[Rfam]
Group II catalytic intron D1-D4-2: a 128-nucleotide RNA from Granulosicoccus antarcticus.
About the family: Group II introns are found in rRNA, tRNA and mRNA of organelles in fungi, plants and protists, and also in mRNA in bacteria.
Gene Ontology term of the family: Group II intron splicing.
Lineage of the source: Bacteria > Pseudomonadota > Chromatiales > Granulosicoccaceae > Granulosicoccus antarcticus.
For this family Rfam cites "Group II introns: structure and catalytic versatility of large natural ribozymes" (Lehmann and Schmidt, Crit Rev Biochem Mol Biol, 2003).
RNA sequence: GGAGGAGUUUGUGACCCUCCGGUAUCGGCCUGCAGGGGCAGGUAUCAAACCGCCUCCGAGCGGCAUUGGCUAAAGACCGUUGUUGUGAGCAUCGGGCGAAAAGGUGCGAUGAAACAAGCGCAUCAGGU
Numbered sequence: 001g002g003a004g005g006a007g008u009u010u011g012u013g014a015c016c017c018u019c020c021g022g023u024a025u026c027g028g029c030c031u032g033c034a035g036g037g038g039c040a041g042g043u044a045u046c047a048a049a050c051c052g053c054c055u056c057c058g059a060g061c062g063g064c065a066u067u068g069g070c071u072a073a074a075g076a077c078c079g080u081u082g083u084u085g086u087g088a089g090c091a092u093c094g095g096g097c098g099a100a101a102a103g104g105u106g107c108g109a110u111g112a113a114a115c116a117a118g119c120g121c122a123u124c125a126g127g128u
Stems, first nucleotide, its partner, number of pairs: 001020005021046006028039004051127001053098001054096001056095004060086002063083003067079003103124006